[Rfam]
A member of the RNA family "mir-1179 microRNA precursor family" from Equus caballus, 79 nucleotides long. The sequence is in the family's curated seed alignment. Taxonomically the source falls in Equus (Eukaryota, Vertebrata, Amniota, Mammalia).
RNA sequence: GAAAGGGAGAAGCAUUCUUUCAUUGGUUGGUGUGUAUUGCCUCGUCAGCCAAUCAGAGGAUGCCAUUUAUCCUUUUCUG
Dot-bracket structure: (((((((.((((((((((((.(((((((((((..........))))))))))).)))))))))..))).)))))))...
Gene Ontology terms of the family: RISC complex and miRNA-mediated post-transcriptional gene silencing.